[Rfam]
RNA sequence: ACCUGCCAGAAUUGUCGAUACGGAUAUGACAAAACUAAUGUAUAAUAAUAAAUAAUCAAUUAGGUCGACAAAAUAUCCUGUUCUGUUGCAAGAAGAAAGACAAUUCGGUAGAGGCGCUGGUGGUAACACCUACGCAAGGAG
Numbered sequence: 001a002c003c004u005g006c007c008a009g010a011a012u013u014g015u016c017g018a019u020a021c022g023g024a025u026a027u028g029a030c031a032a033a034a035c036u037a038a039u040g041u042a043u044a045a046u047a048a049u050a051a052a053u054a055a056u057c058a059a060u061u062a063g064g065u066c067g068a069c070a071a072a073a074u075a076u077c078c079u080g081u082u083c084u085g086u087u088g089c090a091a092g093a094a095g096a097a098a099g100a101c102a103a104u105u106c107g108g109u110a111g112a113g114g115c116g117c118u119g120g121u122g123g124u125a126a127c128a129c130c131u132a133c134g135c136a137a138g139g140a141g
Stems, first nucleotide, its partner, number of pairs: 003111005009105001013102004022078006081094004114135003119130004
RNA: lysM-TM7 RNA